[Rfam]
RNA sequence: GGAUGUGUGAUGAACACCGUUGCCUGAGGACGCUGACGGACUCCUUCCAGAUGUCCAUCUGAGGUCC
Numbered sequence: 001g002g003a004u005g006u007g008u009g010a011u012g013a014a015c016a017c018c019g020u021u022g023c024c025u026g027a028g029g030a031c032g033c034u035g036a037c038g039g040a041c042u043c044c045u046u047c048c049a050g051a052u053g054u055c056c057a058u059c060u061g062a063g064g065u066c067c
Base pairs, nucleotide, nucleotide: 001067002066003065004064
The record is a 67-nucleotide RNA from Cnephaeus nilssonii, which matches "Small nucleolar RNA SNORD109A" in Rfam.
A search with the family's covariance model found it, with a score of 61 bits.
Humans have two copies of the SNORD109 gene, SNORD109A and SNORD109B.
Rfam classes the family as a C/D-box small nucleolar RNA.
The source organism's lineage runs through Eukaryota, Metazoa, Bilateria, Chordata and Cnephaeus.
Rfam 15.1 lists 412 matches to the family in 134 species.